Annotation
The record is a 75-nucleotide RNA sequence from Alligator mississippiensis, which matches "Mammalian CPEB3 ribozyme" in Rfam. It scores 37 bits against the family's covariance model. Gene Ontology term of the family: RNA nuclease activity.
RNA sequence: GUUGCAAGUUUGAGGCUACAGCAGAAGUGCUUACGGUGUGGCUUGUCAGAUUCCAACAAAUCUGCUAAGUCUGCU
Numbered sequence: 001g002u003u004g005c006a007a008g009u010u011u012g013a014g015g016c017u018a019c020a021g022c023a024g025a026a027g028u029g030c031u032u033a034c035g036g037u038g039u040g041g042c043u044u045g046u047c048a049g050a051u052u053c054c055a056a057c058a059a060a061u062c063u064g065c066u067a068a069g070u071c072u073g074c075u
Stems, first nucleotide, its partner, number of pairs: 012043001015042003020075006027039003047064006